[Rfam]
RNA sequence: ACCUUAUGUAGAGGUGCAAUUUAAAUGAGUAAUUACAGGUAGGGUGAUGCCGUUGAUCUGUAAAGAAAGGUUAUUUUGCCGAAGUAAACUGUAUAUCUAAUGCAAUUUGCUGGGGUUGUUUUCGAAUAGGAACAACACUGCCAUAGUCAAAAUGUGAAUAAAACUAUGGAGCGCUACUGUGGGU
Dot-bracket structure: .......((((....((((..(((........(((((((.................))))))).......)))..))))...((((((.(((((.....))))).))))))((.((((((((......)))))))).)).(((((((...............)))))))....)))).......
Numbered sequence: 001a002c003c004u005u006a007u008g009u010a011g012a013g014g015u016g017c018a019a020u021u022u023a024a025a026u027g028a029g030u031a032a033u034u035a036c037a038g039g040u041a042g043g044g045u046g047a048u049g050c051c052g053u054u055g056a057u058c059u060g061u062a063a064a065g066a067a068a069g070g071u072u073a074u075u076u077u078g079c080c081g082a083a084g085u086a087a088a089c090u091g092u093a094u095a096u097c098u099a100a101u102g103c104a105a106u107u108u109g110c111u112g113g114g115g116u117u118g119u120u121u122u123c124g125a126a127u128a129g130g131a132a133c134a135a136c137a138c139u140g141c142c143a144u145a146g147u148c149a150a151a152a153u154g155u156g157a158a159u160a161a162a163a164c165u166a167u168g169g170a171g172c173g174c175u176a177c178u179g180u181g182g183g184u
Stems, first nucleotide, its partner, number of pairs: 008177004016079004022073003033063007083111006090104005112139002115136008141169007

The record is a 184-nucleotide sequence from Vibrio viridaestus, which matches "Lysine riboswitch aptamer" in Rfam. The base pairs follow the family's consensus structure, which is taken from published work.